[Rfam]
RNA: Alphaproteobacterial ar14
Organism: Nitratireductor pacificus
RNA sequence: GGAAUACCUGGCGGCGAAUCCUCCUCCCAUCGCUGCCAGGGACGGGCCGAAACCUCCUCCCUUCGGCCCACCAAGGAAAGACCGGGUCCUCCCCCCGGUCUUUUUUU
Numbered sequence: 001g002g003a004a005u006a007c008c009u010g011g012c013g014g015c016g017a018a019u020c021c022u023c024c025u026c027c028c029a030u031c032g033c034u035g036c037c038a039g040g041g042a043c044g045g046g047c048c049g050a051a052a053c054c055u056c057c058u059c060c061c062u063u064c065g066g067c068c069c070a071c072c073a074a075g076g077a078a079a080g081a082c083c084g085g086g087u088c089c090u091c092c093c094c095c096c097g098g099u100c101u102u103u104u105u106u107u
Stems, first nucleotide, its partner, number of pairs: 007040003011036007044069007078102009